Shown here is a 93-nucleotide sequence from Oryza punctata, a member of the family "Small nucleolar RNA Z256". Its family is annotated with nucleolus and RNA processing in the Gene Ontology. The family has 5 seed sequences and 63 matches in Rfam 15.1. A reference for the family is Chen et al. (2003), "The high diversity of snoRNAs in plants: identification and comparative study of 120 snoRNA genes from Oryza sativa", Nucleic Acids Res. The base pairs follow the family's consensus structure.
RNA sequence: ACUUGCCGAUCAUGCUGACUCCAUCAACUCGGGCCUGGUUAACUGGCCUCCCCGAGUACACUAUUAAUAGCUGGGCUGAGCUGAAGGCCAAGU
Numbered sequence: 001a002c003u004u005g006c007c008g009a010u011c012a013u014g015c016u017g018a019c020u021c022c023a024u025c026a027a028c029u030c031g032g033g034c035c036u037g038g039u040u041a042a043c044u045g046g047c048c049u050c051c052c053c054g055a056g057u058a059c060a061c062u063a064u065u066a067a068u069a070g071c072u073g074g075g076c077u078g079a080g081c082u083g084a085a086g087g088c089c090a091a092g093u
Stems, first nucleotide, its partner, number of pairs: 003091003006087001